[Rfam]
RNA sequence: GGCGCGGGCCUUGCUAAAUACCCAGCAUGGAGCGGUCAACGCCGAUCGCCCCCUUUCACGACAAAGGCGCCGU
Numbered sequence: 001g002g003c004g005c006g007g008g009c010c011u012u013g014c015u016a017a018a019u020a021c022c023c024a025g026c027a028u029g030g031a032g033c034g035g036u037c038a039a040c041g042c043c044g045a046u047c048g049c050c051c052c053c054u055u056u057c058a059c060g061a062c063a064a065a066g067g068c069g070c071c072g073u
Base pairs, nucleotide, nucleotide: 032049033048034047035046036045037044
The family of this 73-nucleotide RNA sequence from Pseudomonas sp. 313 is "narK RNA". The organism belongs to Pseudomonas, within Bacteria. It is one of the family's seed sequences.